[Rfam]
RNA sequence: CUUUGCUUUCAGCCUCUUUACAGUGCUGCCUUGUUGCAUCUCGAUCAAGCAGCAUUGUACAGGGCUAUGAAGGCAUGG
Numbered sequence: 001c002u003u004u005g006c007u008u009u010c011a012g013c014c015u016c017u018u019u020a021c022a023g024u025g026c027u028g029c030c031u032u033g034u035u036g037c038a039u040c041u042c043g044a045u046c047a048a049g050c051a052g053c054a055u056u057g058u059a060c061a062g063g064g065c066u067a068u069g070a071a072g073g074c075a076u077g078g
Stems, first nucleotide, its partner, number of pairs: 014064004019059010030049004
Record summary:
The family of this 78-nucleotide RNA from Kryptolebias marmoratus is "mir-103/107 microRNA precursor family". This family consists of the mammalian microRNA (miRNA) precursors mir-103 and mir107. Animal miRNAs are transcribed as ~70nt precursors and subsequently processed by the Dicer enzyme to give a ~22nt product. In this case the mature sequence comes from the 3' arm of the precursor. Its family is annotated with RISC complex and miRNA-mediated post-transcriptional gene silencing in the Gene Ontology. The family's consensus secondary structure was predicted with RNAalifold. The organism belongs to Kryptolebias, within Eukaryota.